The record is a 100-nucleotide RNA sequence from Streptococcus oralis, which matches "Streptococcus sRNA SpF25" in Rfam. Taxonomically the source falls in Streptococcus oralis (Bacteria, Bacillati, Bacilli, Streptococcaceae). The family's consensus secondary structure was predicted with mfold. The literature on the family includes a 2012 paper in PLoS Pathog by Mann et al., "Control of virulence by small RNAs in Streptococcus pneumoniae".

[Rfam]
RNA sequence: GCGUGGGAUAGCCUUUCUAAAUGGUUUAUUGAGCAAUUCUAUUUUAGCAAGACUGUCGCAAUCAUGCAAAAAGCAACGGCAAAUCCGUUGCUUUUUUUGU
Numbered sequence: 001g002c003g004u005g006g007g008a009u010a011g012c013c014u015u016u017c018u019a020a021a022u023g024g025u026u027u028a029u030u031g032a033g034c035a036a037u038u039c040u041a042u043u044u045u046a047g048c049a050a051g052a053c054u055g056u057c058g059c060a061a062u063c064a065u066g067c068a069a070a071a072a073g074c075a076a077c078g079g080c081a082a083a084u085c086c087g088u089u090g091c092u093u094u095u096u097u098u099g100u
Base pairs, nucleotide, nucleotide: 004060005059007057008056009055010054011053016052017051018050022049023048025046030041031040033038066100067099068098069097070096071095072094073091074090075089076088077087078086079085